Record summary
Rfam assigns this 62-nucleotide RNA from Streptococcus sp. DD10 to the family "Fluoride riboswitch aptamer (crcB RNA motif)". It scores 46 bits against the family's covariance model. NCBI's taxonomy places the organism under Bacteria, Bacillota, Lactobacillales, Streptococcaceae, Streptococcus. The base pairs follow the family's consensus structure, which is taken from published work.

RNA sequence: UAUCCAUAAAGGGAUGGUGCUCCCUAUAAACGCUAGAAAUAGCUGAUGGCGCCUGUUAGAAA
Numbered sequence: 001u002a003u004c005c006a007u008a009a010a011g012g013g014a015u016g017g018u019g020c021u022c023c024c025u026a027u028a029a030a031c032g033c034u035a036g037a038a039a040u041a042g043c044u045g046a047u048g049g050c051g052c053c054u055g056u057u058a059g060a061a062a
Stems, first nucleotide, its partner, number of pairs: 010025004016053006032043004